This 48-nucleotide RNA sequence belongs to the Rfam family "uup RNA". The base pairs follow the family's consensus structure, which is taken from published work.
[Rfam]
RNA sequence: AGAAGCUUUACUCUGUGCAAUUCAAUCCGAUGAAACAUUGUGCAGAGU
Number, nucleotide and partner (000 for none) at each position: 001a000002g000003a000004a000005g000006c000007u000008u000009u000010a000011c047012u046013c045014u044015g043016u000017g041018c040019a039020a000021u000022u000023c000024a000025a000026u000027c000028c000029g000030a000031u000032g000033a000034a000035a000036c000037a000038u000039u019040g018041u017042g000043c015044a014045g013046a012047g011048u000